[Rfam]
RNA: RNase MRP
RNA sequence: UAGCCGCAAGACGAAGUGAAAGGGUUGAGCCCAAGCAUUAGCUUGGACUAGGCCCAGGAAAGUCCCCGGGCCCACCUCUGUAGAGAUACAGCCUCUGAAAGGAGUGAUCUUUGAUUGUAGAAAAUUUGAUCGCACUAGCGAUGGGCUGAGACACGUGUGGAGCCUUGGAAAUUUCUACACAAGUAAUUGGCCGAUUACACAGUUAUUCACUUGGUCCAUAGUUAAGACUAACUGAACGGGGCUUACGAUCUUGCGGUU
Numbered sequence: 001u002a003g004c005c006g007c008a009a010g011a012c013g014a015a016g017u018g019a020a021a022g023g024g025u026u027g028a029g030c031c032c033a034a035g036c037a038u039u040a041g042c043u044u045g046g047a048c049u050a051g052g053c054c055c056a057g058g059a060a061a062g063u064c065c066c067c068g069g070g071c072c073c074a075c076c077u078c079u080g081u082a083g084a085g086a087u088a089c090a091g092c093c094u095c096u097g098a099a100a101g102g103a104g105u106g107a108u109c110u111u112u113g114a115u116u117g118u119a120g121a122a123a124a125u126u127u128g129a130u131c132g133c134a135c136u137a138g139c140g141a142u143g144g145g146c147u148g149a150g151a152c153a154c155g156u157g158u159g160g161a162g163c164c165u166u167g168g169a170a171a172u173u174u175c176u177a178c179a180c181a182a183g184u185a186a187u188u189g190g191c192c193g194a195u196u197a198c199a200c201a202g203u204u205a206u207u208c209a210c211u212u213g214g215u216c217c218a219u220a221g222u223u224a225a226g227a228c229u230a231a232c233u234g235a236a237c238g239g240g241g242c243u244u245a246c247g248a249u250c251u252u253g254c255g256g257u258u
Stems, first nucleotide, its partner, number of pairs: 002258010014212006026056002029053002031046006060244003064241004079090004093104004109183002116179006124172004138163002151158002214228003